The family of this 106-nucleotide RNA from Candidatus Nitrotoga sp. AM1P is "SAM-I/IV (S-adenosyl methionine) riboswitch aptamer".

RNA sequence: GCAUUGCAUCUAGAUUUGGGUCGACGCCCAAUCCAACCUGCCCCUCCCGGGCAAGGUGGUUCGUGAAAGCGGAUGUGGCUCCUUAUGAGCAACCAAGCGGGAAGCG
Numbered sequence: 001g002c003a004u005u006g007c008a009u010c011u012a013g014a015u016u017u018g019g020g021u022c023g024a025c026g027c028c029c030a031a032u033c034c035a036a037c038c039u040g041c042c043c044c045u046c047c048c049g050g051g052c053a054a055g056g057u058g059g060u061u062c063g064u065g066a067a068a069g070c071g072g073a074u075g076u077g078g079c080u081c082c083u084u085a086u087g088a089g090c091a092a093c094c095a096a097g098c099g100g101g102a103a104g105c106g
Base pairs, nucleotide, nucleotide: 006076007075008074009073010072015031017030018029019028020027021026033059034058037056038055039054040052041051042050045101046100047099078090079089080088081087

Taxonomically the source falls in Candidatus Nitrotoga (Bacteria, Pseudomonadota, Betaproteobacteria, Gallionellaceae). A search with the family's covariance model found it, with a score of 56 bits. Gene Ontology terms of the family: S-adenosylmethionine metabolic process and regulation of gene expression. Its Rfam clan is "SAM clan".